Mason-Pfizer monkey virus packaging signal: a 284-nucleotide RNA sequence from Nannospalax galili. Rfam's curators write: This family represents a group of sequences that are related to the Mason-Pfizer monkey virus (MPMV) packaging signal. It scores 132 bits against the family's covariance model. The organism belongs to Nannospalax, within Eukaryota.

RNA sequence: UGGCGCCCAAUGUGGGGCCUGGAUACUGGGGGUAAAAGUGAGGGAGGCGACGUAGAAGGAGGGGUACACACCCGAUAUAUCUCAAGUAGCCGGAGAUGCUGCGGGAGCCUGCUGUGGCUGAAACCGAAGGUGAGUCAGGUCGUCUAUUUAAAUCAUGGGGCAAGCAUUAAGUCAGCAUCAGAUUUAUGUUAUACAGUUAAGGGAAGCUCUCAAGGCAAGAGGAGUAAAGGUAACUACUGAAGAUUUAUUUCAUUUCUUUGAUUUUGUAAAGGAACUUUGUCCUU
Numbered sequence: 001u002g003g004c005g006c007c008c009a010a011u012g013u014g015g016g017g018c019c020u021g022g023a024u025a026c027u028g029g030g031g032g033u034a035a036a037a038g039u040g041a042g043g044g045a046g047g048c049g050a051c052g053u054a055g056a057a058g059g060a061g062g063g064g065u066a067c068a069c070a071c072c073c074g075a076u077a078u079a080u081c082u083c084a085a086g087u088a089g090c091c092g093g094a095g096a097u098g099c100u101g102c103g104g105g106a107g108c109c110u111g112c113u114g115u116g117g118c119u120g121a122a123a124c125c126g127a128a129g130g131u132g133a134g135u136c137a138g139g140u141c142g143u144c145u146a147u148u149u150a151a152a153u154c155a156u157g158g159g160g161c162a163a164g165c166a167u168u169a170a171g172u173c174a175g176c177a178u179c180a181g182a183u184u185u186a187u188g189u190u191a192u193a194c195a196g197u198u199a200a201g202g203g204a205a206g207c208u209c210u211c212a213a214g215g216c217a218a219g220a221g222g223a224g225u226a227a228a229g230g231u232a233a234c235u236a237c238u239g240a241a242g243a244u245u246u247a248u249u250u251c252a253u254u255u256c257u258u259u260g261a262u263u264u265u266g267u268a269a270a271g272g273a274a275c276u277u278u279g280u281c282c283u284u
Stems, first nucleotide, its partner, number of pairs: 006031003012026003038048002087133001090130002095125001097122001100116005140163001142161002147159004169210001171207002219259006228246004269284005